[Rfam]
RNA: Singlet oxygen resistance RNA X
Organism: Yoonia rosea
RNA sequence: UUCCCGCCGGAGAUCGGGUUAUAUCUCCACCUCCCUGUUGGACUUGCCCGGGCUUCGUGCCCGGGCGUUUUU
Numbered sequence: 001u002u003c004c005c006g007c008c009g010g011a012g013a014u015c016g017g018g019u020u021a022u023a024u025c026u027c028c029a030c031c032u033c034c035c036u037g038u039u040g041g042a043c044u045u046g047c048c049c050g051g052g053c054u055u056c057g058u059g060c061c062c063g064g065g066c067g068u069u070u071u072u
Stems, first nucleotide, its partner, number of pairs: 009028006046066008
Dot-bracket structure: ........((((((........)))))).................((((((((.....))))))))......